Shown here is a 579-nucleotide part of an RNA from Thermocladium modestius, a member of the family "Archaeal small subunit ribosomal RNA".
For this family Rfam cites "Crystal structure of the ribosome at 5.5 A resolution" (Yusupov et al., Science, 2001).
It scores 1471 bits against the family's covariance model.
Rfam links the family to the GO terms ribosome and structural constituent of ribosome.

RNA sequence: UGGCGGGGGGGCACCACAAGGGGUGAAGCUUGCGGCUUAAUUGGAGUCAACGCCGGAAACCUUACCCAGGGCGACAGCAAGAUGAUGGCCAGGCUAACGACCUUGCCUGAUGAGCUGAGAGGAGGUGCAUGGCCGUCGCCAGCUCGUGCUGUGAAGUGUCCGGUUAAGUCCGGCAACGAGCGAGACCCCCACUUCUAGUUGCCACCCGGUUCUUCGGAAUCGGGGGCACACUAGAGGGACUGCCGGCGUAAGCCGGAGGAAGGAGGGGGCCACGGCAGGUCAGUAUGCCCCGAAACCCUGGGGCCGCACGCGAGCUGCAAUGGCUGGAACAGCGGGAUUCGACCCCGAGAGGGGGAGAUGAUCCCGUAAAUCCAGCCCCAGUAGGGAUCGAGGGUUGCAAUUCACCCUCGUGAACGUGGAAUCCCUAGUAACCGCGUGUCACCAACGCGCGGUGAAUACGUCCCUGCCCCUUGCACACACCGCCCGUCGCGCCAUCCAAGGGAGUUUCUAGCGAGGCUCCUUGGCUAGCGCCGGGGAGUCGAGCUGGGGGCUCCCGAGGAGGGCGAAGUCGUAACAAGG
Numbered sequence: 001u002g003g004c005g006g007g008g009g010g011g012c013a014c015c016a017c018a019a020g021g022g023g024u025g026a027a028g029c030u031u032g033c034g035g036c037u038u039a040a041u042u043g044g045a046g047u048c049a050a051c052g053c054c055g056g057a058a059a060c061c062u063u064a065c066c067c068a069g070g071g072c073g074a075c076a077g078c079a080a081g082a083u084g085a086u087g088g089c090c091a092g093g094c095u096a097a098c099g100a101c102c103u104u105g106c107c108u109g110a111u112g113a114g115c116u117g118a119g120a121g122g123a124g125g126u127g128c129a130u131g132g133c134c135g136u137c138g139c140c141a142g143c144u145c146g147u148g149c150u151g152u153g154a155a156g157u158g159u160c161c162g163g164u165u166a167a168g169u170c171c172g173g174c175a176a177c178g179a180g181c182g183a184g185a186c187c188c189c190c191a192c193u194u195c196u197a198g199u200u201g202c203c204a205c206c207c208g209g210u211u212c213u214u215c216g217g218a219a220u221c222g223g224g225g226g227c228a229c230a231c232u233a234g235a236g237g238g239a240c241u242g243c244c245g246g247c248g249u250a251a252g253c254c255g256g257a258g259g260a261a262g263g264a265g266g267g268g269g270c271c272a273c274g275g276c277a278g279g280u281c282a283g284u285a286u287g288c289c290c291c292g293a294a295a296c297c298c299u300g301g302g303g304c305c306g307c308a309c310g311c312g313a314g315c316u317g318c319a320a321u322g323g324c325u326g327g328a329a330c331a332g333c334g335g336g337a338u339u340c341g342a343c344c345c346c347g348a349g350a351g352g353g354g355g356a357g358a359u360g361a362u363c364c365c366g367u368a369a370a371u372c373c374a375g376c377c378c379c380a381g382u383a384g385g386g387a388u389c390g391a392g393g394g395u396u397g398c399a400a401u402u403c404a405c406c407c408u409c410g411u412g413a414a415c416g417u418g419g420a421a422u423c424c425c426u427a428g429u430a431a432c433c434g435c436g437u438g439u440c441a442c443c444a445a446c447g448c449g450c451g452g453u454g455a456a457u458a459c460g461u462c463c464c465u466g467c468c469c470c471u472u473g474c475a476c477a478c479a480c481c482g483c484c485c486g487u488c489g490c491g492c493c494a495u496c497c498a499a500g501g502g503a504g505u506u507u508c509u510a511g512c513g514a515g516g517c518u519c520c521u522u523g524g525c526u527a528g529c530g531c532c533g534g535g536g537a538g539u540c541g542a543g544c545u546g547g548g549g550g551c552u553c554c555c556g557a558g559g560a561g562g563g564c565g566a567a568g569u570c571g572u573a574a575c576a577a578g579g
Base pairs, nucleotide, nucleotide: 001477002476003474004473005472007471008470009469010468011467012466013465016461017460020425021424022423023422024421025318027316028315029314030313031312032311033310034309035307036306041056042055043054044053065302066301067300068299069298070297071296075117076116077115078114080111087107088106089105091103092102093101121291122290124289125288126287127286130285131284132280133279134278135276136275137274138273142181143180144179145178146177147176148157149156150155160173161172162171163170187268188267189266190265192237193236194235195234196233197232198231202226203225206224207223209220210219211218212217240259241258243256244255245254246253247252322377323376324375325374326373327372328371334365335364336363339358340357343354344353345352346351384415389410390409391408392407393406394405395404431453432452433451434450435449436448437447438446480578482575485571486570488568490565491564492563493562495560496559497558500555501554502553503552504551505550506549507548508547509546510545511544512543515540516539517538518537519536520535521534522533523532524531